[Rfam]
RNA sequence: CAACUGAAUAUGCUGCGACCGUAGACAGCGGGUGCGCAAGCUGAAUGGCUUCGCUUAAUACCCCGCCGAGGACGAACAUCGAUUCACCUUGGUUGUGAAACGUAUGCCCUCGUAGGUCAACUGCGAGGGCUUUUGUCUGCGACGA
Numbered sequence: 001c002a003a004c005u006g007a008a009u010a011u012g013c014u015g016c017g018a019c020c021g022u023a024g025a026c027a028g029c030g031g032g033u034g035c036g037c038a039a040g041c042u043g044a045a046u047g048g049c050u051u052c053g054c055u056u057a058a059u060a061c062c063c064c065g066c067c068g069a070g071g072a073c074g075a076a077c078a079u080c081g082a083u084u085c086a087c088c089u090u091g092g093u094u095g096u097g098a099a100a101c102g103u104a105u106g107c108c109c110u111c112g113u114a115g116g117u118c119a120a121c122u123g124c125g126a127g128g129g130c131u132u133u134u135g136u137c138u139g140c141g142a143c144g145a
Stems, first nucleotide, its partner, number of pairs: 028066005034054003106130010